[Rfam]
RNA: MIR6274 microRNA precursor family
Organism: Prunus avium
RNA sequence: GGAUAGCAUUGUUUUGCUAUCUCCGAUUAAUAAUACAAUGACAUGUGAAAAAGUUAUCUUACGUGUCAUUGCGGUAUUGACAGGGAAUAGCAAAAAGUGUUAUCC
Numbered sequence: 001g002g003a004u005a006g007c008a009u010u011g012u013u014u015u016g017c018u019a020u021c022u023c024c025g026a027u028u029a030a031u032a033a034u035a036c037a038a039u040g041a042c043a044u045g046u047g048a049a050a051a052a053g054u055u056a057u058c059u060u061a062c063g064u065g066u067c068a069u070u071g072c073g074g075u076a077u078u079g080a081c082a083g084g085g086a087a088u089a090g091c092a093a094a095a096a097g098u099g100u101u102a103u104c105c
Stems, first nucleotide, its partner, number of pairs: 002104004012095009022085003027080006034073001036071013050057001